[Rfam]
RNA: Z30 small nucleolar RNA
Organism: Astyanax mexicanus
RNA sequence: AAGCGAUGAUGAGGGUAUUGUUCCUGACUUGGUAUUGCCACUACAUAGUGACUUUGACCAAGGUCUGAUUGGAUAUUUAAUCUUCUCUCUGAGCUG
Numbered sequence: 001a002a003g004c005g006a007u008g009a010u011g012a013g014g015g016u017a018u019u020g021u022u023c024c025u026g027a028c029u030u031g032g033u034a035u036u037g038c039c040a041c042u043a044c045a046u047a048g049u050g051a052c053u054u055u056g057a058c059c060a061a062g063g064u065c066u067g068a069u070u071g072g073a074u075a076u077u078u079a080a081u082c083u084u085c086u087c088u089c090u091g092a093g094c095u096g
Base pairs, nucleotide, nucleotide: 001095003094004093037052039050040049